The family of this 232-nucleotide sequence from Streptosporangium album is "c-di-AMP riboswitch aptamer (ydaO/yuaA leader)".
RNA sequence: UUCGAACCGAUGCCUAAUCCGUGCAGGCCGUUCCCCCUUUUCGGCCUGAGCGGAGCCGGGGAACCACUUCCGGGAUCCACGGCCGUCCAGGACGUUUCGCUCCGUCAGUCGGAGCCAUGUCCCGGGCCGCCUGCACGGGAUCCCUUGGGGCGAAUCAGCGCUUCUCGCGCCGUAGGGCGGCCUCCACGCCCGAGCCCGACAGCUAACCCGGCCGGCCUUAUGGAAGGAACCA
Numbered sequence: 001u002u003c004g005a006a007c008c009g010a011u012g013c014c015u016a017a018u019c020c021g022u023g024c025a026g027g028c029c030g031u032u033c034c035c036c037c038u039u040u041u042c043g044g045c046c047u048g049a050g051c052g053g054a055g056c057c058g059g060g061g062a063a064c065c066a067c068u069u070c071c072g073g074g075a076u077c078c079a080c081g082g083c084c085g086u087c088c089a090g091g092a093c094g095u096u097u098c099g100c101u102c103c104g105u106c107a108g109u110c111g112g113a114g115c116c117a118u119g120u121c122c123c124g125g126g127c128c129g130c131c132u133g134c135a136c137g138g139g140a141u142c143c144c145u146u147g148g149g150g151c152g153a154a155u156c157a158g159c160g161c162u163u164c165u166c167g168c169g170c171c172g173u174a175g176g177g178c179g180g181c182c183u184c185c186a187c188g189c190c191c192g193a194g195c196c197c198g199a200c201a202g203c204u205a206a207c208c209c210g211g212c213c214g215g216c217c218u219u220a221u222g223g224a225a226g227g228a229a230c231c232a
Stems, first nucleotide, its partner, number of pairs: 012216003018054005055212006065147002148197003156172001158170002175191004